[Rfam]
RNA sequence: ACUGAGGCGGGCUAGGGUUCCGGUUGCGUUUGUAUGGCGCGAUGUCUGGUCCAAGAGCUUGCCGGCUUUGCGACUGCGGAGCUCCACGGAGGGAUAAAAGCCCGGGAGGA
Numbered sequence: 001a002c003u004g005a006g007g008c009g010g011g012c013u014a015g016g017g018u019u020c021c022g023g024u025u026g027c028g029u030u031u032g033u034a035u036g037g038c039g040c041g042a043u044g045u046c047u048g049g050u051c052c053a054a055g056a057g058c059u060u061g062c063c064g065g066c067u068u069u070g071c072g073a074c075u076g077c078g079g080a081g082c083u084c085c086a087c088g089g090a091g092g093g094a095u096a097a098a099a100g101c102c103c104g105g106g107a108g109g110a
Base pairs, nucleotide, nucleotide: 007062008061009060010059011058012057015052016051020049021048022046023043024042025041026040027039028038029037030036064083065082066081067080068079069078070077071076085105087108091103092102093101

A member of the RNA family "Guanidine-I riboswitch aptamer" from Thiomonas sp. X19, 110 nucleotides long.